RNA sequence: GUUAAUGUAGCUUAAAAUUAAAGCAAGGCACUGAAAAUGCCUAGAUGAGUAUAUUAACUCCAUAAACA
Number, nucleotide and partner (000 for none) at each position: 001g067002u066003u065004a000005a063006u062007g061008u000009a000010g024011c023012u022013u021014a000015a000016a000017a000018u000019u000020a000021a013022a012023g011024c010025a000026a042027g041028g040029c039030a038031c000032u000033g000034a000035a000036a000037a000038u030039g029040c028041c027042u026043a000044g000045a000046u000047g060048a059049g058050u057051a000052u000053a000054u000055u000056a000057a050058c049059u048060c047061c007062a006063u005064a000065a003066a002067c001068a000
Shown here is a 68-nucleotide RNA sequence, a member of the family "tRNA". Transfer RNA (tRNA) molecules are approximately 80 nucleotides in length.